Annotation:
Fluoride riboswitch aptamer (crcB RNA motif): a 62-nucleotide sequence from Fulvimonas soli.
[Rfam]
RNA sequence: CGGCGGACGGGUGAUGGAGUCCACCUACGAUUGCCGCGACGGCUGAUGACUCCUACAGGCAA
Numbered sequence: 001c002g003g004c005g006g007a008c009g010g011g012u013g014a015u016g017g018a019g020u021c022c023a024c025c026u027a028c029g030a031u032u033g034c035c036g037c038g039a040c041g042g043c044u045g046a047u048g049a050c051u052c053c054u055a056c057a058g059g060c061a062a
Base pairs, nucleotide, nucleotide: 010025011024012023013022016053017052018051019050020049021048033043034042035041
A search with the family's covariance model found it, with a score of 42 bits. The family's consensus secondary structure is taken from published work.